Notes: Shown here is a 37-nucleotide sequence from Paenibacillus larvae, a member of the family "abiF RNA". The family's consensus secondary structure is taken from published work. Actinobacteria, Bacteroidetes, Clostridia, Proteobacteria, one Clostridia phage.

[Rfam]
Nucleotides: 037
Stems, first nucleotide, its partner, number of pairs: 001036006008024003
Number, partner (000 for none) and nucleotide at each position: 001036c002035c003034c004033a005032c006031c007000a008024c009023g010022c011000c012000u013000c014000u015000u016000a017000a018000c019000a020000a021000u022010g023009c024008g025000u026000a027000c028000c029000a030000a031006g032005g033004u034003g035002g036001g037000c